[Rfam]
RNA sequence: GGGCGGGAGUGCGGCUAAUACAAGACCCGUAAGGGGAAUAUGCCCGCCGUCUAGUCGCGGUUUUGAGCUCCCGCCCACCUUCCU
Numbered sequence: 001g002g003g004c005g006g007g008a009g010u011g012c013g014g015c016u017a018a019u020a021c022a023a024g025a026c027c028c029g030u031a032a033g034g035g036g037a038a039u040a041u042g043c044c045c046g047c048c049g050u051c052u053a054g055u056c057g058c059g060g061u062u063u064u065g066a067g068c069u070c071c072c073g074c075c076c077a078c079c080u081u082c083c084u
Stems, first nucleotide, its partner, number of pairs: 001076009013044003016040002026035003046061005

Annotation: A member of the RNA family "sRNA-Xcc1" from Robbsia andropogonis, 84 nucleotides long. It scores 81 bits against the family's covariance model.